[Rfam]
RNA sequence: AAAAAGGGCGUGCCAUUGUACCCUUCCUUUGGGGAGGCUAAUAUGGCAGGAGUCUUGGUUUACUCCUGCGGUAUGGCUAUCAAGACAUAUCGAGCGCAUAAUUUUUUGAUUUUGGGUGGCUCGCAAUAGGCUUCGCUUAAGCCGGGGCCUCCCUU
Numbered sequence: 001a002a003a004a005a006g007g008g009c010g011u012g013c014c015a016u017u018g019u020a021c022c023c024u025u026c027c028u029u030u031g032g033g034g035a036g037g038c039u040a041a042u043a044u045g046g047c048a049g050g051a052g053u054c055u056u057g058g059u060u061u062a063c064u065c066c067u068g069c070g071g072u073a074u075g076g077c078u079a080u081c082a083a084g085a086c087a088u089a090u091c092g093a094g095c096g097c098a099u100a101a102u103u104u105u106u107u108g109a110u111u112u113u114g115g116g117u118g119g120c121u122c123g124c125a126a127u128a129g130g131c132u133u134c135g136c137u138u139a140a141g142c143c144g145g146g147g148c149c150u151c152c153c154u155u
Stems, first nucleotide, its partner, number of pairs: 008097004013046004047068007069092007114153003118149005124144001

The record is a 155-nucleotide RNA sequence from Mucor plumbeus, which matches "U11 spliceosomal RNA" in Rfam. NCBI's taxonomy places the organism under Eukaryota, Mucoromycetes, Mucorales, Mucoraceae, Mucor. Rfam classes the family as a spliceosomal small nuclear RNA. Rfam links the family to the GO terms U11 snRNP, mRNA 5'-splice site recognition and pre-mRNA 5'-splice site binding.